Shown here is a 251-nucleotide RNA sequence from Eubacterium sp. CAG:603, a member of the family "Clostridiales-3 RNA". The match comes from Rfam's covariance-model search (150 bits).
RNA sequence: UUGAGUAAAAUUACGGUUCAUAUACCCGCAGGAUGGAAGUCACAGUCAUCAUAUCAGUAGACUGAUGGAUUGAGAGAUGAAGGGCGAGAGGUUUGUCCUGGUCCACGCAAGGCAGAUAGGGGAGAUAGUGCUUCUCUUAUGAGAAGGGCGUCGUGAACACAGUUAAGUGGCUCGUCUGUAGCUCCCGGAGGUGAGUACACCUCUACGUAUAUGGGGCGAUGAGGGGUCAAGAAGACUGGCAUAUACCUUAA
Numbered sequence: 001u002u003g004a005g006u007a008a009a010a011u012u013a014c015g016g017u018u019c020a021u022a023u024a025c026c027c028g029c030a031g032g033a034u035g036g037a038a039g040u041c042a043c044a045g046u047c048a049u050c051a052u053a054u055c056a057g058u059a060g061a062c063u064g065a066u067g068g069a070u071u072g073a074g075a076g077a078u079g080a081a082g083g084g085c086g087a088g089a090g091g092u093u094u095g096u097c098c099u100g101g102u103c104c105a106c107g108c109a110a111g112g113c114a115g116a117u118a119g120g121g122g123a124g125a126u127a128g129u130g131c132u133u134c135u136c137u138u139a140u141g142a143g144a145a146g147g148g149c150g151u152c153g154u155g156a157a158c159a160c161a162g163u164u165a166a167g168u169g170g171c172u173c174g175u176c177u178g179u180a181g182c183u184c185c186c187g188g189a190g191g192u193g194a195g196u197a198c199a200c201c202u203c204u205a206c207g208u209a210u211a212u213g214g215g216g217c218g219a220u221g222a223g224g225g226g227u228c229a230a231g232a233a234g235a236c237u238g239g240c241a242u243a244u245a246c247c248u249u250a251a
Stems, first nucleotide, its partner, number of pairs: 001010002077154002081099007102123003106119001124152003128149002131146005158169003188203006207246007225237004